[Rfam]
RNA sequence: CAACUCUGGAGAGAGCUCACAUUCAUAUGAGCCACCAAAGGGGAAACUUGCAAGUGGGAACGAUAUACCCCCACCUGAUUCGCAAGGUAACUCUCAGGUACCAAGGACAGAGGAGGAGAA
Number, nucleotide and partner (000 for none) at each position: 001c115002a000003a000004c112005u111006c110007u109008g108009g000010a000011g000012a000013g000014a000015g032016c031017u030018c029019a000020c000021a000022u000023u000024c000025a000026u000027a000028u000029g018030a017031g016032c015033c000034a099035c098036c097037a000038a094039a000040g000041g093042g092043g091044a000045a000046a000047c086048u085049u084050g083051c082052a000053a000054g000055u000056g000057g000058g000059a000060a000061c000062g000063a000064u000065a000066u000067a000068c000069c000070c000071c000072c000073a000074c000075c000076u000077g000078a000079u000080u000081c000082g051083c050084a049085a048086g047087g000088u000089a000090a000091c043092u042093c041094u038095c000096a000097g036098g035099u034100a000101c000102c000103a000104a000105g000106g000107a000108c008109a007110g006111a005112g004113g000114a000115g001116g000117a000118g000119a000120a000